RNA sequence: AGGAGGCAGGAUGACCAUCCGCCAGCGCGUUGCGCCCGCGGAUG
Numbered sequence: 001a002g003g004a005g006g007c008a009g010g011a012u013g014a015c016c017a018u019c020c021g022c023c024a025g026c027g028c029g030u031u032g033c034g035c036c037c038g039c040g041g042a043u044g
Stems, first nucleotide, its partner, number of pairs: 016044007025035004

A member of the RNA family "ffh sRNA" from Dichotomicrobium thermohalophilum, 44 nucleotides long. The family's consensus secondary structure is taken from published work. By type it is a small RNA. A reference for the family is Meyer et al. (2009), "Identification of candidate structured RNAs in the marine organism 'Candidatus Pelagibacter ubique'", BMC Genomics. The source organism's lineage runs through Bacteria, Pseudomonadati, Pseudomonadota, Hyphomicrobiales and Dichotomicrobium.